[Rfam]
RNA sequence: GUGUACGUGUGUGUGUGUGUUAAGCACAAAGGACAGGUAUACUUGCCUGUGUGUUGAUGUUUUUCAGCACUAAGGACAGGUAUGCUUGCCU
Numbered sequence: 001g002u003g004u005a006c007g008u009g010u011g012u013g014u015g016u017g018u019g020u021u022a023a024g025c026a027c028a029a030a031g032g033a034c035a036g037g038u039a040u041a042c043u044u045g046c047c048u049g050u051g052u053g054u055u056g057a058u059g060u061u062u063u064u065c066a067g068c069a070c071u072a073a074g075g076a077c078a079g080g081u082a083u084g085c086u087u088g089c090c091u
Stems, first nucleotide, its partner, number of pairs: 004082003008078003016072001017070005023064002026061001029058001031052001033050007
This 91-nucleotide sequence from Branchiostoma lanceolatum belongs to the Rfam family "mir-2060 microRNA precursor family". It scores 61 bits against the family's covariance model. The source organism's lineage runs through Eukaryota, Cephalochordata, Leptocardii, Branchiostomatidae and Branchiostoma. Gene Ontology terms of the family: miRNA-mediated post-transcriptional gene silencing and RISC complex.